The family of this 102-nucleotide sequence from Vanilla planifolia is "MIR397 microRNA precursor family". Rfam 15.1 lists 496 matches to the family in 218 species. The base pairs follow the family's consensus structure, which was predicted with WAR. A reference for the family is Wu et al. (2009), "Rice MicroRNA effector complexes and targets", Plant Cell. It scores 55 bits against the family's covariance model.
RNA sequence: AUCAAAGACAUUAUUGAGUGCUGCGCUGAUGAUAUCCUACAACUCUAUAAGCUUCAUUUGGAGAGGUGGAUUUCAUCAACGCUGCACUCAAAGAUGGCUUUA
Number, nucleotide and partner (000 for none) at each position: 001a000002u000003c000004a000005a000006a099007g098008a000009c096010a095011u094012u000013a000014u091015u090016g089017a088018g087019u086020g085021c084022u000023g082024c081025g080026c000027u078028g077029a000030u075031g074032a073033u000034a000035u000036c000037c000038u000039a000040c000041a000042a000043c000044u000045c000046u000047a000048u000049a000050a000051g000052c000053u000054u000055c000056a000057u000058u000059u000060g000061g000062a000063g000064a000065g000066g000067u000068g000069g000070a000071u000072u000073u032074c031075a030076u000077c028078a027079a000080c025081g024082c023083u000084g021085c020086a019087c018088u017089c016090a015091a014092a000093g000094a011095u010096g009097g000098c007099u006100u000101u000102a000